[Rfam]
RNA: SucA RNA motif
Organism: Sphaerotilus hippei
RNA sequence: UCGCAAUCCGCCAACCGGUCAAGCCGUGUCGCGGAAGGUUGUUCAACCCAUCGAAGCUCCGGGUACCGGGGCAUAAGGUGAGCG
Numbered sequence: 001u002c003g004c005a006a007u008c009c010g011c012c013a014a015c016c017g018g019u020c021a022a023g024c025c026g027u028g029u030c031g032c033g034g035a036a037g038g039u040u041g042u043u044c045a046a047c048c049c050a051u052c053g054a055a056g057c058u059c060c061g062g063g064u065a066c067c068g069g070g071g072c073a074u075a076a077g078g079u080g081a082g083c084g
Stems, first nucleotide, its partner, number of pairs: 002084003007035005016026004037048004049080004056072007